[Rfam]
RNA sequence: GGCCCGGAUCGUCUUAUCGCCUUGCUUUCGGGUGGGGAGGAAAGUCCGGACAGCAUAGGGCACCCUACUUCCUAACGGGAAGGCGGGCGGCGGGUAACCACCGUUCGACAGCCAGUGUCACAGAAAAUAUACCGCCGGGGUUAAUGAGUGACGGUCCGAUGCAUCGGACCGUCACUCAUUAACCCCGGUAAGGGUGAAAAGGGGGUGUAAGAGACCACCGCCCGGAUGGCGACAUGCGGGGCAGGAUAAACCUUAGGGGCUGAAAGACCAAACAGUGCCGGAUGUGGGGCGGCUCGUCUCCUCGUCGCCUUCGGGUGGCGACCGGUACGGGUAGGUCGAUAGAGGGGGUCGGUGACGGCCCUCCCAGAUAAAUGAUAAGACGGUCCGACGCGCCCACGGGUACGGUCGGGCCGACAGAAUCCGGCUUAUAGAUUCGGGCCUUUG
Numbered sequence: 001g002g003c004c005c006g007g008a009u010c011g012u013c014u015u016a017u018c019g020c021c022u023u024g025c026u027u028u029c030g031g032g033u034g035g036g037g038a039g040g041a042a043a044g045u046c047c048g049g050a051c052a053g054c055a056u057a058g059g060g061c062a063c064c065c066u067a068c069u070u071c072c073u074a075a076c077g078g079g080a081a082g083g084c085g086g087g088c089g090g091c092g093g094g095u096a097a098c099c100a101c102c103g104u105u106c107g108a109c110a111g112c113c114a115g116u117g118u119c120a121c122a123g124a125a126a127a128u129a130u131a132c133c134g135c136c137g138g139g140g141u142u143a144a145u146g147a148g149u150g151a152c153g154g155u156c157c158g159a160u161g162c163a164u165c166g167g168a169c170c171g172u173c174a175c176u177c178a179u180u181a182a183c184c185c186c187g188g189u190a191a192g193g194g195u196g197a198a199a200a201g202g203g204g205g206u207g208u209a210a211g212a213g214a215c216c217a218c219c220g221c222c223c224g225g226a227u228g229g230c231g232a233c234a235u236g237c238g239g240g241g242c243a244g245g246a247u248a249a250a251c252c253u254u255a256g257g258g259g260c261u262g263a264a265a266g267a268c269c270a271a272a273c274a275g276u277g278c279c280g281g282a283u284g285u286g287g288g289g290c291g292g293c294u295c296g297u298c299u300c301c302u303c304g305u306c307g308c309c310u311u312c313g314g315g316u317g318g319c320g321a322c323c324g325g326u327a328c329g330g331g332u333a334g335g336u337c338g339a340u341a342g343a344g345g346g347g348g349u350c351g352g353u354g355a356c357g358g359c360c361c362u363c364c365c366a367g368a369u370a371a372a373u374g375a376u377a378a379g380a381c382g383g384u385c386c387g388a389c390g391c392g393c394c395c396a397c398g399g400g401u402a403c404g405g406u407c408g409g410g411c412c413g414a415c416a417g418a419a420u421c422c423g424g425c426u427u428a429u430a431g432a433u434u435c436g437g438g439c440c441u442u443u444g
Stems, first nucleotide, its partner, number of pairs: 001440010011429001012380007020037007042427003046424005051262004060312001063258005068082005083109001084107007110253002115251002117247003132193002134189026201219002204216003220242001221240004226235003266337004275328006305321005344363008

Overview: Rfam assigns this 444-nucleotide RNA sequence from Fibrella rubiginis to the family "Bacterial RNase P class A". Taxonomically the source falls in Fibrella (Bacteria, Bacteroidota, Cytophagia, Cytophagales).